[Rfam]
RNA sequence: AACCAAUCAACGCUGAAUUCCCGCCACGCGGGAAACGGGGGAACCACCAGGCCACAAGCCUACUUGGGGUGAAUCCGAAGGGGACUGCACCCAUGCAGUCUCACUAGGCAGGGCGACUCUCACCGCCCGAAUCCGACAGCUAACUCCGUAAGCGUAUAGAGAGAGAACUU
Numbered sequence: 001a002a003c004c005a006a007u008c009a010a011c012g013c014u015g016a017a018u019u020c021c022c023g024c025c026a027c028g029c030g031g032g033a034a035a036c037g038g039g040g041g042a043a044c045c046a047c048c049a050g051g052c053c054a055c056a057a058g059c060c061u062a063c064u065u066g067g068g069g070u071g072a073a074u075c076c077g078a079a080g081g082g083g084a085c086u087g088c089a090c091c092c093a094u095g096c097a098g099u100c101u102c103a104c105u106a107g108g109c110a111g112g113g114c115g116a117c118u119c120u121c122a123c124c125g126c127c128c129g130a131a132u133c134c135g136a137c138a139g140c141u142a143a144c145u146c147c148g149u150a151a152g153c154g155u156a157u158a159g160a161g162a163g164a165g166a167a168c169u170u
Stems, first nucleotide, its partner, number of pairs: 011154004018034006035149006045066002067134003075108002078105001111128004
Rfam assigns this 170-nucleotide RNA from Paenibacillus graminis to the family "c-di-AMP riboswitch aptamer (ydaO/yuaA leader)".
From the family's description: This family represents a conserved RNA structure found upstream of the ydaO and yuaA genes in Bacillus subtilis and related genes in other bacteria.